The record is a 119-nucleotide RNA from Devosia geojensis, which matches "Rhizobiales sRNA Atu_C8" in Rfam.

RNA sequence: UCCCUUGCGGUCCCUUAUUCUCGUACUUGGUAGGCGCACUGGUCACGUGGGGUAGGUCCCCGCGCGUAAGCUGGUGCGCCGAAACGAGGUCCCGAAUGGGGCCUUUUUUAUUGCCUUUU
Numbered sequence: 001u002c003c004c005u006u007g008c009g010g011u012c013c014c015u016u017a018u019u020c021u022c023g024u025a026c027u028u029g030g031u032a033g034g035c036g037c038a039c040u041g042g043u044c045a046c047g048u049g050g051g052g053u054a055g056g057u058c059c060c061c062g063c064g065c066g067u068a069a070g071c072u073g074g075u076g077c078g079c080c081g082a083a084a085c086g087a088g089g090u091c092c093c094g095a096a097u098g099g100g101g102c103c104u105u106u107u108u109u110a111u112u113g114c115c116u117u118u119u
Base pairs, nucleotide, nucleotide: 007028009026029115030114031113032112033080034079035078036077037076038075039074040073041072042071046062047061049059050058065070087104088103089102090101091100092099093098

NCBI's taxonomy places the organism under Bacteria, Pseudomonadati, Pseudomonadota, Devosiaceae, Devosia.